[Rfam]
RNA sequence: GCAAUUCUGGAAAGUGGUCGCAGCGCCUUUUGAGCUGCUGCGCCUCACCGAAGGAGUAAGCCGGCCCGUGCCAGACGCGACGCGCCGGUGAAUCUCUCAGGUAUCCAUGACAGAAGGGGCCGG
Numbered sequence: 001g002c003a004a005u006u007c008u009g010g011a012a013a014g015u016g017g018u019c020g021c022a023g024c025g026c027c028u029u030u031u032g033a034g035c036u037g038c039u040g041c042g043c044c045u046c047a048c049c050g051a052a053g054g055a056g057u058a059a060g061c062c063g064g065c066c067c068g069u070g071c072c073a074g075a076c077g078c079g080a081c082g083c084g085c086c087g088g089u090g091a092a093u094c095u096c097u098c099a100g101g102u103a104u105c106c107a108u109g110a111c112a113g114a115a116g117g118g119g120c121c122g123g
Stems, first nucleotide, its partner, number of pairs: 002118001005115005016045002019042007047102003050098002054096003060089006
This 123-nucleotide sequence from Pelagibius litoralis belongs to the Rfam family "Glycine riboswitch aptamer". Gene Ontology term of the family: glycine biosynthetic process. About the family: This family represents the bacterial glycine riboswitch. Glycine riboswitches usually consist of two metabolite-binding aptamers domains with similar structures in tandem. The aptamers cooperatively bind glycine to regulate the expression of downstream genes. In Bacillus subtilis, this riboswitch is found upstream of the gcvT operon which controls glycine degradation.